[Rfam]
Nucleotides: 096
Base pairs, nucleotide, nucleotide: 002095003094004093006091007090008089009088010087011086012085013084016081017080018079019078020077021076024073026071027070028069029068030067
Number, partner (000 for none) and nucleotide at each position: 001000u002095u003094u004093g005000u006091g007090g008089g009088g010087a011086a012085u013084g014000g015000u016081g017080u018079c019078u020077g021076g022000u023000c024073c025000a026071a027070g028069g029068a030067g031000a032000u033000c034000c035000a036000u037000c038000c039000a040000u041000u042000a043000c044000u045000c046000a047000c048000u049000u050000u051000c052000a053000c054000u055000u056000c057000a058000a059000u060000c061000a062000u063000u064000u065000c066000u067030c068029u069028c070027c071026u072000c073024g074000g075000a076021c077020c078019a079018g080017g081016c082000u083000u084013c085012a086011u087010u088009c089008c090007u091006c092000u093004c094003a095002a096000u

A member of the RNA family "mir-166 microRNA precursor family" from Cicer arietinum, 96 nucleotides long. From the family's description: This family represents the plant microRNA (miRNA) precursor mir-166.